[Rfam]
RNA sequence: AGUGAUCUAGGUUAUUUUGGACUGUCUGUUUUCAAAACAGGAGGUGGCUUUGGUCGGUUGCUG
Numbered sequence: 001a002g003u004g005a006u007c008u009a010g011g012u013u014a015u016u017u018u019g020g021a022c023u024g025u026c027u028g029u030u031u032u033c034a035a036a037a038c039a040g041g042a043g044g045u046g047g048c049u050u051u052g053g054u055c056g057g058u059u060g061c062u063g
Stems, first nucleotide, its partner, number of pairs: 001062007010023004025041005046055003
Shown here is a 63-nucleotide sequence, a member of the family "tRNA". The base pairs follow the family's consensus structure, which is taken from published work. The family's RNA type in Rfam is transfer RNA.